Description:
tRNA: a 72-nucleotide RNA from Promethearchaeum syntrophicum.
RNA sequence: GGGGUGUUAGUCUAGUCGUAUGAUGGUGGCCUCCAGAGUCACUGGUCGCGGGUUCAAUUCCCACACACCCCA
Numbered sequence: 001g002g003g004g005u006g007u008u009a010g011u012c013u014a015g016u017c018g019u020a021u022g023a024u025g026g027u028g029g030c031c032u033c034c035a036g037a038g039u040c041a042c043u044g045g046u047c048g049c050g051g052g053u054u055c056a057a058u059u060c061c062c063a064c065a066c067a068c069c070c071c072a
Base pairs, nucleotide, nucleotide: 001071002070003069004068005067006066007065010024011023012022026042027041028040029039030038048064050062051061052060
Record summary:
Rfam classes the family as a transfer RNA.